Guanidine-I riboswitch aptamer: a 109-nucleotide RNA sequence. For this family Rfam cites "New RNA motifs suggest an expanded scope for riboswitches in bacterial genetic control" (Barrick et al., Proc Natl Acad Sci U S A, 2004). The family has 100 seed sequences and 1,509 matches in Rfam 15.1. This family represents a conserved RNA structure found upstream of the ykkC and yxkD genes in Bacillus subtilis and related genes in other bacteria.
RNA sequence: UGUGCAGGUGUCUAGGGUUCCGCCGUCGAAACGAUGGGUCAGGUUCAAGAGAUACCGCCGAUGGGGCUAAUUCCCCAUUGGUACACGGCCGGACAAAAUCUCAGGAGAG
Numbered sequence: 001u002g003u004g005c006a007g008g009u010g011u012c013u014a015g016g017g018u019u020c021c022g023c024c025g026u027c028g029a030a031a032c033g034a035u036g037g038g039u040c041a042g043g044u045u046c047a048a049g050a051g052a053u054a055c056c057g058c059c060g061a062u063g064g065g066g067c068u069a070a071u072u073c074c075c076c077a078u079u080g081g082u083a084c085a086c087g088g089c090c091g092g093a094c095a096a097a098a099u100c101u102c103a104g105g106a107g108a109g
Stems, first nucleotide, its partner, number of pairs: 007056006015046002020043002022040001023037006057082010084104001086107001091101002
Dot-bracket structure: ......((((((..((...(((((((((...))))))..).)).))....))))))((((((((((......)))))))))).(.[....((.......))..)..]..